[Rfam]
RNA: mir-31 microRNA precursor family
Organism: Varanus komodoensis
RNA sequence: AGCUGGAGGGGAGGCAAGAUGUUGGCAUAGCUGAUGAACUGAGAACCUGCUAUGCCAACAUAUUGCCCUCUUUCCUAUCU
Numbered sequence: 001a002g003c004u005g006g007a008g009g010g011g012a013g014g015c016a017a018g019a020u021g022u023u024g025g026c027a028u029a030g031c032u033g034a035u036g037a038a039c040u041g042a043g044a045a046c047c048u049g050c051u052a053u054g055c056c057a058a059c060a061u062a063u064u065g066c067c068c069u070c071u072u073u074c075c076u077a078u079c080u
Stems, first nucleotide, its partner, number of pairs: 005075007013067005019061003023057009